[Rfam]
RNA: RNase MRP
RNA sequence: GGGAACGGGGAAGAUUCGCUCUCGGAGCAACAAGCGAGGGUCCGCUCUGCGUUCUCUCUCACUAAGCUCCGGGGAAAGUCUCCGGACCAGGCGGCAGAGAGUGCCGGCUGUGAGCGCAAUAGCCUGGCAGCGCGCCACGCGGCAAAGACGCCUCGCGCGGAGCCCAGGCGGGCUGCCAGGUGGUUUGUCGAAGCACAGUAAUGCGAAUGGUGGCUUAGCGCCGCUAACACAACGGAGCUUACUCUCUCCGUACC
Number, nucleotide and partner (000 for none) at each position: 001g000002g254003g253004a000005a251006c250007g249008g248009g247010g246011a245012a000013g000014a208015u207016u206017c205018g204019c203020u000021c000022u072023c071024g070025g069026a068027g067028c066029a000030a000031c000032a000033a000034g000035c000036g000037a057038g056039g055040g054041u000042c000043c051044g050045c049046u000047c000048u000049g045050c044051g043052u000053u000054c040055u039056c038057u037058c000059u000060c000061a000062c000063u000064a000065a000066g028067c027068u026069c025070c024071g023072g022073g000074g000075a000076a240077a239078g238079u000080c237081u236082c235083c234084g000085g000086a000087c000088c000089a000090g000091g000092c000093g105094g104095c103096a102097g000098a000099g000100a000101g000102u096103g095104c094105c093106g000107g120108c000109u118110g117111u116112g000113a000114g000115c000116g111117c110118a109119a000120u107121a000122g000123c180124c179125u178126g177127g176128c175129a174130g173131c172132g000133c170134g169135c168136c167137a000138c000139g000140c000141g164142g163143c162144a000145a000146a000147g000148a000149c000150g158151c157152c000153u000154c000155g000156c000157g151158c150159g000160g000161a000162g143163c142164c141165c000166a000167g136168g135169c134170g133171g000172g131173c130174u129175g128176c127177c126178a125179g124180g123181u000182g000183g000184u000185u000186u000187g000188u000189c000190g000191a000192a000193g000194c000195a000196c000197a000198g000199u000200a000201a000202u000203g019204c018205g017206a016207a015208u014209g000210g224211u223212g222213g221214c220215u000216u000217a000218g000219c000220g214221c213222c212223g211224c210225u000226a000227a000228c000229a000230c000231a000232a000233c000234g083235g082236a081237g080238c078239u077240u076241a000242c000243u000244c000245u011246c010247u009248c008249c007250g006251u005252a000253c003254c002